[Rfam]
RNA sequence: CUUCUCGAAAUGGAUCGAAGUCCAGCUUCGAGCGAUGCUGCCUGUAGAGGUAAAGCCACUGAUUGGGCUGUCCUAGGCCUUCGGGCCUAGGAACCCAGUCAAACUCUGAACUCUGCAGGGGCGCAGACCUCGGAAGUCAGGGACGGUGCGUAAGGUACCGUUCCGAGAGGGAAACAACCCAGAGCAAGGUUAAGGCCCCCAAUUCCUAGCUAAGUGUCAUGAAAGGGCGUCCCGGUUCUCAGACAGUGGGGAGGUUAGCUUAGAAGCAGCUACCCUUUAAAGAAAGCGUAACAGCUCACCCAUUGAGAACUGGGGCACCGAAAAUGGACGGGGCUCAAGCUAGGAGCCGAGACCUUGCCAUCGUUUCUACGAUGGGUAGGGAAGCGCUCCGCGCGGACGGAAGCAUGGCCGUGAGGUCGUGUGGACCGCCCGGAGACGAAGAU
Dot-bracket structure: ((((((....(((((....))))).(((((((....(((.((((((((....(((.....(((((((.(....((((((....))))))..).)))))))...)).)....)))))))))))......)))))).)...(((((((((.......)))))))))....(((......)))...(((((((...(((......(.((((((..............((..((((((((((.......(((((.(((..(((.........)))..)))(...)(...((......)).).)))))...)))))))))).))...................))))))))))...)))))))((((((....))))))....))))))(.(((((.((((......((((((((....))))))))...)))).)))))..).....
Numbered sequence: 001c002u003u004c005u006c007g008a009a010a011u012g013g014a015u016c017g018a019a020g021u022c023c024a025g026c027u028u029c030g031a032g033c034g035a036u037g038c039u040g041c042c043u044g045u046a047g048a049g050g051u052a053a054a055g056c057c058a059c060u061g062a063u064u065g066g067g068c069u070g071u072c073c074u075a076g077g078c079c080u081u082c083g084g085g086c087c088u089a090g091g092a093a094c095c096c097a098g099u100c101a102a103a104c105u106c107u108g109a110a111c112u113c114u115g116c117a118g119g120g121g122c123g124c125a126g127a128c129c130u131c132g133g134a135a136g137u138c139a140g141g142g143a144c145g146g147u148g149c150g151u152a153a154g155g156u157a158c159c160g161u162u163c164c165g166a167g168a169g170g171g172a173a174a175c176a177a178c179c180c181a182g183a184g185c186a187a188g189g190u191u192a193a194g195g196c197c198c199c200c201a202a203u204u205c206c207u208a209g210c211u212a213a214g215u216g217u218c219a220u221g222a223a224a225g226g227g228c229g230u231c232c233c234g235g236u237u238c239u240c241a242g243a244c245a246g247u248g249g250g251g252a253g254g255u256u257a258g259c260u261u262a263g264a265a266g267c268a269g270c271u272a273c274c275c276u277u278u279a280a281a282g283a284a285a286g287c288g289u290a291a292c293a294g295c296u297c298a299c300c301c302a303u304u305g306a307g308a309a310c311u312g313g314g315g316c317a318c319c320g321a322a323a324a325u326g327g328a329c330g331g332g333g334c335u336c337a338a339g340c341u342a343g344g345a346g347c348c349g350a351g352a353c354c355u356u357g358c359c360a361u362c363g364u365u366u367c368u369a370c371g372a373u374g375g376g377u378a379g380g381g382a383a384g385c386g387c388u389c390c391g392c393g394c395g396g397a398c399g400g401a402a403g404c405a406u407g408g409c410c411g412u413g414a415g416g417u418c419g420u421g422u423g424g425a426c427c428g429c430c431c432g433g434a435g436a437c438g439a440a441g442a443u
Stems, first nucleotide, its partner, number of pairs: 001384006011024005026136001027134006037122003041119008053107001054105002061100007069092001074089006140164009169180003184358007194348003203345001205344006225319002229316010246303005252276003257271003277281001282297001286295002359374006385438001387435005393429004403422008
Rfam assigns this 443-nucleotide part of an RNA to the family "Archaeal large subunit ribosomal RNA". Its Rfam clan is "LSU clan". The base pairs follow the family's consensus structure, which is taken from published work. The match comes from Rfam's covariance-model search (2437 bits). A reference for the family is Cannone et al. (2002), "The comparative RNA web (CRW) site: an online database of comparative sequence and structure information for ribosomal, intron, and other RNAs", BMC Bioinformatics.